[Rfam]
RNA sequence: AAGCGAAGGUCCCAGCAGAGAGGCGAGGACUCUUGUGAAUUGAGGCCUCUCUAACAAAUACUAAUAACCUUCGCAUAUCAAUUUCUGCCGAAUCGUAGGAUACCCAGAGCUUUUCAUCUCCGGAUUAUCUUGAACCCUCGGCUAAAUAUCA
Numbered sequence: 001a002a003g004c005g006a007a008g009g010u011c012c013c014a015g016c017a018g019a020g021a022g023g024c025g026a027g028g029a030c031u032c033u034u035g036u037g038a039a040u041u042g043a044g045g046c047c048u049c050u051c052u053a054a055c056a057a058a059u060a061c062u063a064a065u066a067a068c069c070u071u072c073g074c075a076u077a078u079c080a081a082u083u084u085c086u087g088c089c090g091a092a093u094c095g096u097a098g099g100a101u102a103c104c105c106a107g108a109g110c111u112u113u114u115c116a117u118c119u120c121c122g123g124a125u126u127a128u129c130u131u132g133a134a135c136c137c138u139c140g141g142c143u144a145a146a147u148a149u150c151a
Stems, first nucleotide, its partner, number of pairs: 003074007011020001013018001025051003032044004087142005099129002102126001104123002107120003
This 151-nucleotide sequence from Turnera subulata belongs to the Rfam family "Small nucleolar RNA snoR145". Rfam links the family to the GO terms nucleolus and RNA processing. NCBI's taxonomy places the organism under Eukaryota, Viridiplantae, Streptophytina, Embryophyta, Turnera. The family has 19 seed sequences and 286 matches in Rfam 15.1. For this family Rfam cites "Mining small RNA sequencing data: a new approach to identify small nucleolar RNAs in Arabidopsis" (Chen and Wu, Nucleic Acids Res, 2009). It scores 127 bits against the family's covariance model.